[Rfam]
This 132-nucleotide sequence from Leptolyngbya sp. Cla-17 belongs to the Rfam family "Guanidine-I riboswitch aptamer".
For this family Rfam cites "Structural Basis for Ligand Binding to the Guanidine-I Riboswitch" (Reiss et al., Structure, 2017).
It scores 79 bits against the family's covariance model.
RNA sequence: AUAAUUAGCCUCUAGGGUUCCGGUUUGAUGAUUCGCUCAUUGAACGUCUGGUCCGAGAGAGGCAAGCUCCCACUAAUUUGCUAAACGGCAGCUUAGAUAGGAGUUACACGGCGGGAAAAAAGCCCGGGAGAA
Numbered sequence: 001a002u003a004a005u006u007a008g009c010c011u012c013u014a015g016g017g018u019u020c021c022g023g024u025u026u027g028a029u030g031a032u033u034c035g036c037u038c039a040u041u042g043a044a045c046g047u048c049u050g051g052u053c054c055g056a057g058a059g060a061g062g063c064a065a066g067c068u069c070c071c072a073c074u075a076a077u078u079u080g081c082u083a084a085a086c087g088g089c090a091g092c093u094u095a096g097a098u099a100g101g102a103g104u105u106a107c108a109c110g111g112c113g114g115g116a117a118a119a120a121a122g123c124c125c126g127g128g129a130g131a132a
Base pairs, nucleotide, nucleotide: 008063009062010061011060012059015054016053020051021050022048023045024044025043026042027041028040029039030038031037065105066104067103068102069101070100072098107127109130113125114124115123